[Rfam]
RNA sequence: GAGCCGGGCCGUGACUGGCGCGCUGGGAUGGGCUCAACCAUCAGGGAGCGGCCCCGGUCGACGUGACCGAUCGUGCCGUGCGCCUGGGCCACACUC
Numbered sequence: 001g002a003g004c005c006g007g008g009c010c011g012u013g014a015c016u017g018g019c020g021c022g023c024u025g026g027g028a029u030g031g032g033c034u035c036a037a038c039c040a041u042c043a044g045g046g047a048g049c050g051g052c053c054c055c056g057g058u059c060g061a062c063g064u065g066a067c068c069g070a071u072c073g074u075g076c077c078g079u080g081c082g083c084c085u086g087g088g089c090c091a092c093a094c095u096c
Stems, first nucleotide, its partner, number of pairs: 004056001006054007015045002017084005028041004075089003

The family of this 96-nucleotide sequence from Virgisporangium ochraceum is "ZMP/ZTP riboswitch aptamer (pfl RNA motif)". Pairs were carried over by alignment from the consensus structure, which is taken from published work. Gene Ontology terms of the family: regulation of purine nucleotide biosynthetic process and one-carbon metabolic process. A search with the family's covariance model found it, with a score of 50 bits. The source organism's lineage runs through Bacteria, Bacillati, Actinomycetota, Actinomycetes and Virgisporangium.